[Rfam]
RNA sequence: CCCUGACAGGCGCAUACCGUGCCUGACACAACCCAAGACAGGAGAUACACAUG
Numbered sequence: 001c002c003c004u005g006a007c008a009g010g011c012g013c014a015u016a017c018c019g020u021g022c023c024u025g026a027c028a029c030a031a032c033c034c035a036a037g038a039c040a041g042g043a044g045a046u047a048c049a050c051a052u053g
Base pairs, nucleotide, nucleotide: 002042003041004040005039007025008024009023010022011021
About this RNA: This 53-nucleotide RNA sequence belongs to the Rfam family "Mu-gpT-DE RNA". It is one of the family's seed sequences. Pairs were carried over by alignment from the consensus structure, which is taken from published work. Rfam classes the family as a small RNA.